[Rfam]
RNA sequence: GUGUCAGUGAGGUUAAUCCUUGCCUGUUACCUCAGAAUUGAGGUAGCAAAGAAUGAUGAUUGGGUUUGAUGAAUAUGUGAUUAAAUUCUGUAUUUGAUACUGGAUUGCAACACCUUAUCAAAUCCUAUCUGAU
Number, nucleotide and partner (000 for none) at each position: 001g000002u000003g000004u000005c000006a000007g000008u000009g000010a000011g000012g000013u000014u000015a000016a000017u000018c000019c000020u000021u000022g000023c000024c000025u048026g047027u000028u045029a044030c043031c042032u041033c040034a000035g000036a000037a000038u000039u000040g033041a032042g031043g030044u029045a028046g000047c026048a025049a000050a000051g000052a000053a000054u000055g000056a000057u000058g000059a000060u000061u000062g000063g000064g000065u000066u000067u000068g000069a000070u000071g000072a000073a089074u000075a087076u000077g000078u083079g000080a000081u000082u000083a078084a000085a000086u000087u075088c000089u073090g000091u000092a000093u000094u121095u120096g119097a118098u117099a116100c000101u000102g114103g000104a000105u000106u000107g000108c000109a000110a000111c000112a000113c000114c102115u000116u099117a098118u097119c096120a095121a094122a000123u000124c000125c000126u000127a000128u000129c000130u000131g000132a000133u000
RNA: U8 small nucleolar RNA